[Rfam]
RNA: Small nucleolar RNA Z105
RNA sequence: GCGUAAUGAUGAUGAUGUUGUAUAGAACCGACAAAUUCAUGAAAGGAAUACAAACCUCCUACUCAUACUGA
Numbered sequence: 001g002c003g004u005a006a007u008g009a010u011g012a013u014g015a016u017g018u019u020g021u022a023u024a025g026a027a028c029c030g031a032c033a034a035a036u037u038c039a040u041g042a043a044a045g046g047a048a049u050a051c052a053a054a055c056c057u058c059c060u061a062c063u064c065a066u067a068c069u070g071a
Stems, first nucleotide, its partner, number of pairs: 006066004029046001032041001